[Rfam]
RNA: SAM riboswitch aptamer (S box leader)
Organism: Bacillus subtilis
RNA sequence: AACUUAUCAAGAGCGGCUGAGGGACUGGACCUAUGAAGCCCGGCAACCUGCAUAGUUUGUAAGGUGCUACUUCCAGCAAAAUGAAUUCCAUUUUGAAAGAUAAGGG
Numbered sequence: 001a002a003c004u005u006a007u008c009a010a011g012a013g014c015g016g017c018u019g020a021g022g023g024a025c026u027g028g029a030c031c032u033a034u035g036a037a038g039c040c041c042g043g044c045a046a047c048c049u050g051c052a053u054a055g056u057u058u059g060u061a062a063g064g065u066g067c068u069a070c071u072u073c074c075a076g077c078a079a080a081a082u083g084a085a086u087u088c089c090a091u092u093u094u095g096a097a098a099g100a101u102a103a104g105g106g
Stems, first nucleotide, its partner, number of pairs: 003104006013041001015040003021031002025076004042068004047064002049061004072098001077095006